[Rfam]
RNA: TPP riboswitch aptamer (THI element)
Organism: Rhizobacter gummiphilus
RNA sequence: GCCUGCUUGUCGGGGUGCCGAGGGUCGAUUCGAUCCGAGGCUGAGAUGGCGCAUCACGCCAAACCCGUUGAACCUGAUCGGGAUCACCCCCGCGUAGGAAACAAUGCACUCGGCCCU
Numbered sequence: 001g002c003c004u005g006c007u008u009g010u011c012g013g014g015g016u017g018c019c020g021a022g023g024g025u026c027g028a029u030u031c032g033a034u035c036c037g038a039g040g041c042u043g044a045g046a047u048g049g050c051g052c053a054u055c056a057c058g059c060c061a062a063a064c065c066c067g068u069u070g071a072a073c074c075u076g077a078u079c080g081g082g083a084u085c086a087c088c089c090c091c092g093c094g095u096a097g098g099a100a101a102c103a104a105u106g107c108a109c110u111c112g113g114c115c116c117u
Stems, first nucleotide, its partner, number of pairs: 007104004011067004016061001017041003048060004073098004079092004